[Rfam]
RNA: UnaL2 LINE 3' element
Organism: Acipenser ruthenus
RNA sequence: UAAGGAAGUCUCUGUAAGUCGCUUUGGAUAAAAGCAUCUGCUAAAUGACUAAAU
Dot-bracket structure: ............((((....(((((.....)))))...))).)...........